[Rfam]
RNA sequence: AGGCUGACGCCAUGUUCCGCUGACUCCCGUCAGCAACAUGCCCAGGUAGCCACGAUCCUCAAGGCUACGGCGCGGUUCUGGCCGCGUUGAUCACCCCAGUUCGCACCGGCAUCCACGCGCGAACGCCCAUCGGUUUCCGAUGGCGAUGC
Number, nucleotide and partner (000 for none) at each position: 001a000002g000003g000004c000005u000006g000007a000008c000009g000010c000011c040012a039013u038014g037015u000016u035017c000018c000019g034020c033021u032022g031023a030024c029025u000026c000027c000028c000029g024030u023031c022032a021033g020034c019035a016036a000037c014038a013039u012040g011041c000042c000043c000044a000045g000046g068047u067048a066049g065050c064051c063052a000053c000054g092055a091056u090057c089058c000059u000060c000061a000062a000063g051064g050065c049066u048067a047068c046069g088070g087071c086072g085073c084074g083075g082076u000077u000078c000079u000080g000081g000082c075083c074084g073085c072086g071087u070088u069089g057090a056091u055092c054093a000094c000095c000096c000097c000098a000099g000100u000101u000102c000103g000104c000105a000106c000107c000108g000109g000110c000111a000112u000113c000114c000115a000116c000117g000118c000119g149120c148121g147122a000123a000124c000125g000126c000127c143128c142129a141130u140131c139132g138133g137134u000135u000136u000137c133138c132139g131140a130141u129142g128143g127144c000145g000146a000147u121148g120149c119